A member of the RNA family "Burkholderia sRNA 2" from Paraburkholderia megapolitana, 132 nucleotides long. Rfam classes the family as a small RNA. On this family, see Ghosh et al., Microbiology 2017: "Identification of novel small RNAs in Burkholderia cenocepacia KC-01 expressed under iron limitation and oxidative stress conditions". A search with the family's covariance model found it, with a score of 80 bits. From the family's description: Upregulated in response to iron ion depletion. The organism belongs to Paraburkholderia, within Bacteria.
RNA sequence: AUGAGUGCCUGUCUACCCCAUUCUCUUCUCCGCUGCGCCAGGUUUCGCGCUAAUCGCGCUGGAAUCGCAAGGCGCACCGUGAUGAUCGAAGUCGAGCCGCUUGUCCCGGUUGCCGGGACGGCGGCUUUUUUA
Dot-bracket structure: ......(((.((...................)).).)).(.(.(.(((.......................))).).).)..((((....))))((((((.((((((.......))))))))))))......